Background:
The family of this 85-nucleotide RNA sequence from Enterococcus rivorum is "RNA anti-toxin A". Rfam links the family to the GO terms negative regulation of translation and mRNA binding. The family has 16 seed sequences and 190 matches in Rfam 15.1. It scores 73 bits against the family's covariance model.
[Rfam]
RNA sequence: UAAUGAAAAAGAAAAAGUGGAUAUGCGCUAACAUAUCCUCUUUGUAGAACCGUUUAAGACGGUAGCAGAUUUUAAUUACUUAAAA
Numbered sequence: 001u002a003a004u005g006a007a008a009a010a011g012a013a014a015a016a017g018u019g020g021a022u023a024u025g026c027g028c029u030a031a032c033a034u035a036u037c038c039u040c041u042u043u044g045u046a047g048a049a050c051c052g053u054u055u056a057a058g059a060c061g062g063u064a065g066c067a068g069a070u071u072u073u074a075a076u077u078a079c080u081u082a083a084a085a
Base pairs, nucleotide, nucleotide: 022035023034024033025032049063050062051061052060053059054058